The record is a 131-nucleotide RNA from Isobaculum melis, which matches "PyrR binding site" in Rfam. The base pairs follow the family's consensus structure, which is taken from published work. This family represents the PyrR binding site and terminator structure.
RNA sequence: UUUUCCUUUAACAAUAGUCCUGUGAGGCUAGGAAGGAGCACUGAAAAGAUGGAAGCCUAAAAAUAGGUGAAUUCUUUUUAAACAUGCAAUUUUUGUGCCUUCUUAUCAUUCAUGGUAAGAAGGUUUUUUGA
Numbered sequence: 001u002u003u004u005c006c007u008u009u010a011a012c013a014a015u016a017g018u019c020c021u022g023u024g025a026g027g028c029u030a031g032g033a034a035g036g037a038g039c040a041c042u043g044a045a046a047a048g049a050u051g052g053a054a055g056c057c058u059a060a061a062a063a064u065a066g067g068u069g070a071a072u073u074c075u076u077u078u079u080a081a082a083c084a085u086g087c088a089a090u091u092u093u094u095g096u097g098c099c100u101u102c103u104u105a106u107c108a109u110u111c112a113u114g115g116u117a118a119g120a121a122g123g124u125u126u127u128u129u130g131a
Stems, first nucleotide, its partner, number of pairs: 003038007015030005055068005095126001097124012